Rfam assigns this 104-nucleotide sequence from Nicotiana sylvestris to the family "mir-399 microRNA precursor family". Rfam 15.1 lists 2,396 matches to the family in 221 species. Rfam's curators write: mir-399 was identified in both Arabidopsis thaliana and Oryza sativa computationally and was later experimentally verified. mir-399 is thought to target mRNAs coding for a phosphatase transporter. The mature sequence is excised from the 3' arm of the hairpin. Pairs were carried over by alignment from the consensus structure, which was predicted with PFOLD.

[Rfam]
RNA sequence: GAACCAGUUGUAGGGCAGCACUCCGUUUGGCAGAUAUUUAGUUAUCAACACGUAUUCACGUACAUUUGUUAUCUGCCAAAGGAGAGUUGCCCUAUAAUUGUUUC
Numbered sequence: 001g002a003a004c005c006a007g008u009u010g011u012a013g014g015g016c017a018g019c020a021c022u023c024c025g026u027u028u029g030g031c032a033g034a035u036a037u038u039u040a041g042u043u044a045u046c047a048a049c050a051c052g053u054a055u056u057c058a059c060g061u062a063c064a065u066u067u068g069u070u071a072u073c074u075g076c077c078a079a080a081g082g083a084g085a086g087u088u089g090c091c092c093u094a095u096a097a098u099u100g101u102u103u104c
Stems, first nucleotide, its partner, number of pairs: 005100005011094009021084004028078009